The record is a 153-nucleotide RNA sequence from Corynebacterium mustelae, which matches "FMN riboswitch aptamer (RFN element)" in Rfam. Rfam 15.1 lists 6,230 matches to the family in 5,120 species. It scores 109 bits against the family's covariance model.

[Rfam]
RNA sequence: AUAAGUUCUCAGGGCGGGGCGAAAUUCCCCACCGGCGGUAAUUCUUGGUUUUUUCAAGACGAGCCCGCGAGCGCCACCAACUUUUGGUGGGUCAAGCAGAUUGUGGUGUGAUUCCACAGCCGACGGUUAUAGUCCGGAUGAAAGAGGACUACG
Numbered sequence: 001a002u003a004a005g006u007u008c009u010c011a012g013g014g015c016g017g018g019g020c021g022a023a024a025u026u027c028c029c030c031a032c033c034g035g036c037g038g039u040a041a042u043u044c045u046u047g048g049u050u051u052u053u054u055c056a057a058g059a060c061g062a063g064c065c066c067g068c069g070a071g072c073g074c075c076a077c078c079a080a081c082u083u084u085u086g087g088u089g090g091g092u093c094a095a096g097c098a099g100a101u102u103g104u105g106g107u108g109u110g111a112u113u114c115c116a117c118a119g120c121c122g123a124c125g126g127u128u129a130u131a132g133u134c135c136g137g138a139u140g141a142a143a144g145a146g147g148a149c150u151a152c153g
Base pairs, nucleotide, nucleotide: 004150005149006148007147008146009145010144017029018028019027031133032132033122034121035068036067037066038065063120064119071097072096102118103117104116105115106114124136125135126134
Dot-bracket structure: ...(((((((......(((.......))).[[((((((........................[[))))..((.......................))....(((((.......)))))]])).(((.....]]))).......)))))))...